[Rfam]
RNA: U2 spliceosomal RNA
Organism: Polypterus senegalus
RNA sequence: AUAUUUUUUCAAAAAAAAAUCUGUUCUUAUCAGUUUAAUAUCUGAUACGUCCCCUAUCUGGGGACCAUAUAUUAAAUUGAUUUUUGGAACAGGGAGAUGGAAUAGGGGCUUGCUCCGUCCACUCCACGCAUCGACCUGGUAUUGCAGUACUUCCAGGAGCGGUGCACUUUCU
Number, nucleotide and partner (000 for none) at each position: 001a000002u000003a008004u000005u000006u000007u000008u003009u000010c000011a000012a000013a000014a000015a000016a000017a000018a000019a000020u000021c000022u000023g000024u000025u000026c000027u000028u047029a046030u045031c044032a043033g042034u000035u000036u000037a000038a000039u000040a000041u000042c033043u032044g031045a030046u029047a028048c000049g065050u064051c063052c062053c061054c060055u000056a000057u000058c000059u000060g054061g053062g052063g051064a050065c049066c000067a000068u000069a000070u000071a000072u000073u000074a000075a000076a000077u000078u000079g000080a000081u000082u000083u000084u000085u000086g000087g000088a000089a000090c000091a000092g000093g125094g124095a123096g122097a000098u000099g119100g118101a000102a000103u000104a000105g116106g115107g114108g113109c000110u000111u000112g000113c108114u107115c106116c105117g000118u100119c099120c000121a000122c096123u095124c094125c093126a000127c000128g165129c164130a163131u162132c161133g160134a000135c157136c156137u155138g154139g153140u000141a000142u000143u000144g000145c000146a000147g000148u000149a000150c000151u000152u000153c139154c138155a137156g136157g135158a000159g000160c133161g132162g131163u130164g129165c128166a000167c000168u000169u000170u000171c000172u000